[Rfam]
RNA sequence: UUACUGAAUGUGAGAGUUGGAUGAAAACAAACCAAUCGAUCAUCAUCAUCAGGUUCUUCACUGGAUCGAUGAUUGGCUUGUUUUCCUCCAAUAUCUCACCUUCAGUCG
Dot-bracket structure: ...(((((..((((.((((((.((((((((.(((((((...............................))))))).)))))))).))))))..))))..)))))...
Numbered sequence: 001u002u003a004c005u006g007a008a009u010g011u012g013a014g015a016g017u018u019g020g021a022u023g024a025a026a027a028c029a030a031a032c033c034a035a036u037c038g039a040u041c042a043u044c045a046u047c048a049u050c051a052g053g054u055u056c057u058u059c060a061c062u063g064g065a066u067c068g069a070u071g072a073u074u075g076g077c078u079u080g081u082u083u084u085c086c087u088c089c090a091a092u093a094u095c096u097c098a099c100c101u102u103c104a105g106u107c108g
Stems, first nucleotide, its partner, number of pairs: 004105005011098004016092006023085008032076007

A member of the RNA family "MIR2275 microRNA precursor family" from Digitaria exilis, 108 nucleotides long. Gene Ontology terms of the family: RISC complex and miRNA-mediated post-transcriptional gene silencing. The organism belongs to Digitaria, within Eukaryota. A search with the family's covariance model found it, with a score of 78 bits.